[Rfam]
RNA sequence: CAGUACACUCAUCCAUAAAGUAGGAAACACUACACUUGGACACAAGCAUUUAGUAGUGCUUUCUACUUUAUGGAUGAGUCCACUGU
Dot-bracket structure: .............((((((((((..(.((((((...................)))))).)..))))))))))..............
Numbered sequence: 001c002a003g004u005a006c007a008c009u010c011a012u013c014c015a016u017a018a019a020g021u022a023g024g025a026a027a028c029a030c031u032a033c034a035c036u037u038g039g040a041c042a043c044a045a046g047c048a049u050u051u052a053g054u055a056g057u058g059c060u061u062u063c064u065a066c067u068u069u070a071u072g073g074a075u076g077a078g079u080c081c082a083c084u085g086u
Stems, first nucleotide, its partner, number of pairs: 014072010026060001028058006

The family of this 86-nucleotide RNA sequence from Notechis scutatus is "mir-142 microRNA precursor family". The match comes from Rfam's covariance-model search (74 bits). Pairs were carried over by alignment from the consensus structure, which was predicted with RNAalifold.